Background: The record is a 51-nucleotide sequence, which matches "DUF3800-XI RNA" in Rfam. Rfam classes the family as a small RNA. Rfam describes the family as follows. Actinobacteria, Firmicutes, Proteobacteria, Spirochaetes (1 example). Pairs were carried over by alignment from the consensus structure, which is taken from published work. Rfam's curators put it in the seed alignment.
RNA sequence: UGAGCUGGUCGAAAGACCCAGGUUCAACCUAACUAGGCGGGCAAACUGUCC
Numbered sequence: 001u002g003a004g005c006u007g008g009u010c011g012a013a014a015g016a017c018c019c020a021g022g023u024u025c026a027a028c029c030u031a032a033c034u035a036g037g038c039g040g041g042c043a044a045a046c047u048g049u050c051c
Stems, first nucleotide, its partner, number of pairs: 001026006007018004